[Rfam]
RNA sequence: CAUUCCCAGCAGGAUUAUACCUCUGCCGGUUUUCACCUCGGUUAUAUUUCUAAUACGAUUAUCACCGGGUGUACAUCGGUGCAGGUACAAUCCCGCUCU
Numbered sequence: 001c002a003u004u005c006c007c008a009g010c011a012g013g014a015u016u017a018u019a020c021c022u023c024u025g026c027c028g029g030u031u032u033u034c035a036c037c038u039c040g041g042u043u044a045u046a047u048u049u050c051u052a053a054u055a056c057g058a059u060u061a062u063c064a065c066c067g068g069g070u071g072u073a074c075a076u077c078g079g080u081g082c083a084g085g086u087a088c089a090a091u092c093c094c095g096c097u098c099u
Stems, first nucleotide, its partner, number of pairs: 016089001018087005024081007032073001034071004039067001041065002044062003